About this RNA:
Shown here is an 87-nucleotide RNA from Cucurbita maxima, a member of the family "Small nucleolar RNA snoR8a". NCBI's taxonomy places the organism under Eukaryota, Streptophyta, Streptophytina, Cucurbiteae, Cucurbita. Its family is annotated with nucleolus and RNA processing in the Gene Ontology. Rfam 15.1 lists 956 matches to the family in 245 species. A search with the family's covariance model found it, with a score of 84 bits.
RNA sequence: UUGGUUGCGAUGAUUAUAAAAUUUAAAUGUUCUGAAUGCUAAUGCCAUGGCAUGACAGACACUUUACACCCAUAGAAUAUGAGCAUC
Number, nucleotide and partner (000 for none) at each position: 001u000002u000003g087004g086005u000006u085007g084008c000009g000010a000011u000012g000013a000014u000015u000016a000017u000018a000019a000020a000021a000022u000023u000024u000025a000026a000027a000028u000029g000030u000031u000032c000033u000034g000035a000036a000037u000038g000039c000040u000041a000042a000043u000044g000045c000046c000047a000048u000049g000050g000051c000052a000053u000054g000055a000056c000057a000058g000059a000060c000061a000062c000063u000064u000065u000066a000067c000068a000069c000070c000071c000072a000073u000074a000075g000076a000077a000078u000079a000080u000081g000082a000083g000084c007085a006086u004087c003